Record summary
The record is a 72-nucleotide RNA sequence from Catagonus wagneri, which matches "Small nucleolar RNA SNORD113/SNORD114 family" in Rfam. The family's consensus secondary structure is taken from published work. Its family is annotated with RNA processing and nucleolus in the Gene Ontology. Rfam classes the family as a C/D-box small nucleolar RNA.

[Rfam]
RNA sequence: UUGACUGACUAUGGCUACUGUUAUCACAGGAGUCCUGUAUGAUGACUAUGUGUCUUGAACGCUGAGGUCCAU
Dot-bracket structure: ..((((...........................................................))))...
Taxonomically the source falls in Catagonus (Eukaryota, Euteleostomi, Sarcopterygii, Eutheria).
The family has 59 seed sequences and 5,721 matches in Rfam 15.1.
The literature on the family includes a 2002 paper in Hum Mol Genet by Cavaille et al., "Identification of tandemly-repeated C/D snoRNA genes at the imprinted human 14q32 domain reminiscent of those at the Prader-Willi/Angelman syndrome region".